[Rfam]
RNA: UnaL2 LINE 3' element
RNA sequence: GAUUUUAACUGAUGUAAGUUGCUCUGGGUAAGAGCAUCUGCUAAAUGACAGUAA
Numbered sequence: 001g002a003u004u005u006u007a008a009c010u011g012a013u014g015u016a017a018g019u020u021g022c023u024c025u026g027g028g029u030a031a032g033a034g035c036a037u038c039u040g041c042u043a044a045a046u047g048a049c050a051g052u053a054a
Base pairs, nucleotide, nucleotide: 013043014041015040016039020036021035022034023033024032025031